Rfam assigns this 69-nucleotide RNA sequence from Micromonospora halophytica to the family "ASpks TB sRNA". Taxonomically the source falls in Micromonospora (Bacteria, Bacillati, Micromonosporales, Micromonosporaceae). The match comes from Rfam's covariance-model search (53 bits). The family's RNA type in Rfam is antisense RNA.
RNA sequence: CUUGACCGAGCCCAGCCACAGCGGCCGGUCCCGCCCGGUUCCGUACGCGCCGAUCAGGGCCUCCGCCUC
Numbered sequence: 001c002u003u004g005a006c007c008g009a010g011c012c013c014a015g016c017c018a019c020a021g022c023g024g025c026c027g028g029u030c031c032c033g034c035c036c037g038g039u040u041c042c043g044u045a046c047g048c049g050c051c052g053a054u055c056a057g058g059g060c061c062u063c064c065g066c067c068u069c
Base pairs, nucleotide, nucleotide: 015025016024017023031065033063035059036058037054039052042049043048